[Rfam]
RNA sequence: GCCUGGUGGUUCCCAGAGUCUGCUCCAAAGUGCUGAACUGUGGGUUUUUAUAAAACAGGCGCAUAUUGAAUCUGCCGUUUUAUGCAUGGGAACUGUCACUAUAGCAGCUUUCCAUAGCCCGGCUGCAGAUACAUUG
Numbered sequence: 001g002c003c004u005g006g007u008g009g010u011u012c013c014c015a016g017a018g019u020c021u022g023c024u025c026c027a028a029a030g031u032g033c034u035g036a037a038c039u040g041u042g043g044g045u046u047u048u049u050a051u052a053a054a055a056c057a058g059g060c061g062c063a064u065a066u067u068g069a070a071u072c073u074g075c076c077g078u079u080u081u082a083u084g085c086a087u088g089g090g091a092a093c094u095g096u097c098a099c100u101a102u103a104g105c106a107g108c109u110u111u112c113c114a115u116a117g118c119c120c121g122g123c124u125g126c127a128g129a130u131a132c133a134u135u136g
Stems, first nucleotide, its partner, number of pairs: 001060004007050002012044004017039001019036002022033002072128001074126002077123003084118002086115004091110002093107004
A member of the RNA family "Small nucleolar RNA SNORA84" from Scophthalmus maximus, 136 nucleotides long. The source organism's lineage runs through Eukaryota, Clupeocephala, Euteleosteomorpha, Neoteleostei and Scophthalmus. The match comes from Rfam's covariance-model search (77 bits). On this family, see Marker et al., Curr Biol 2002: "Experimental RNomics: identification of 140 candidates for small non-messenger RNAs in the plant Arabidopsis thaliana". By type it is an H/ACA-box small nucleolar RNA. Rfam 15.1 lists 757 matches to the family in 629 species.